[Rfam]
RNA sequence: AACCUUUUGUAUCCGUGCUGAGAUUUCGUCACAUAUGGCUGAUGAGACUUCCAAGAUAAGUGAAGCG
Numbered sequence: 001a002a003c004c005u006u007u008u009g010u011a012u013c014c015g016u017g018c019u020g021a022g023a024u025u026u027c028g029u030c031a032c033a034u035a036u037g038g039c040u041g042a043u044g045a046g047a048c049u050u051c052c053a054a055g056a057u058a059a060g061u062g063a064a065g066c067g
Base pairs, nucleotide, nucleotide: 003065005063006062008060010058011057012056013055016053017052020050021049022048024047025046026045027044028043029042030041